[Rfam]
RNA sequence: GGACUGGAACUUUCGACGCGGAUGCACUAUAUAGUAAGAGCUGGCUUGCCAGAUAUGACGAUAAACGCGCGUGUAAUAAGCGGAUUGGACCCGGGGGCAGUACCCGGCGGCUCCACCACAAACCCAACAUUAAUUUGGUGGGCUUCUGAUGGGGCCGAAAUAGCAUCGACAAACGCCUAAAGACGUAAGCUUUCGUUCGUGUGGACUCCGUUAAAAGUCCAUAAACAGUAAUUGCAAAUGACAAUUAUACUGAGGAUUUCGCCUUGGCUGCGUAAGCAGUCCGGAUGAUUCCGAACUAAACUCCUAGGGUUUCAGACCCCUAGGCGGGCUCCGGUGGGUAGCUGGCAACAGAAACCCACCACU
Numbered sequence: 001g002g003a004c005u006g007g008a009a010c011u012u013u014c015g016a017c018g019c020g021g022a023u024g025c026a027c028u029a030u031a032u033a034g035u036a037a038g039a040g041c042u043g044g045c046u047u048g049c050c051a052g053a054u055a056u057g058a059c060g061a062u063a064a065a066c067g068c069g070c071g072u073g074u075a076a077u078a079a080g081c082g083g084a085u086u087g088g089a090c091c092c093g094g095g096g097g098c099a100g101u102a103c104c105c106g107g108c109g110g111c112u113c114c115a116c117c118a119c120a121a122a123c124c125c126a127a128c129a130u131u132a133a134u135u136u137g138g139u140g141g142g143c144u145u146c147u148g149a150u151g152g153g154g155c156c157g158a159a160a161u162a163g164c165a166u167c168g169a170c171a172a173a174c175g176c177c178u179a180a181a182g183a184c185g186u187a188a189g190c191u192u193u194c195g196u197u198c199g200u201g202u203g204g205a206c207u208c209c210g211u212u213a214a215a216a217g218u219c220c221a222u223a224a225a226c227a228g229u230a231a232u233u234g235c236a237a238a239u240g241a242c243a244a245u246u247a248u249a250c251u252g253a254g255g256a257u258u259u260c261g262c263c264u265u266g267g268c269u270g271c272g273u274a275a276g277c278a279g280u281c282c283g284g285a286u287g288a289u290u291c292c293g294a295a296c297u298a299a300a301c302u303c304c305u306a307g308g309g310u311u312u313c314a315g316a317c318c319c320c321u322a323g324g325c326g327g328g329c330u331c332c333g334g335u336g337g338g339u340a341g342c343u344g345g346c347a348a349c350a351g352a353a354a355c356c357c358a359c360c361a362c363u
Stems, first nucleotide, its partner, number of pairs: 041052004057197005067190002069186004081175002085172003091107005108157007198210002200221002204218001327343004333360006

Shown here is a 363-nucleotide sequence from Algimonas arctica, a member of the family "Alphaproteobacteria transfer-messenger RNA". Bacterial tmRNA, also known as 10Sa RNA or SsrA, is named for its dual tRNA and mRNA-like properties. Its role is to liberate the mRNA from a stalled ribosome. Pairs were carried over by alignment from the consensus structure, which is taken from published work. NCBI's taxonomy places the organism under Bacteria, Pseudomonadati, Maricaulales, Robiginitomaculaceae, Algimonas. The match comes from Rfam's covariance-model search (251 bits).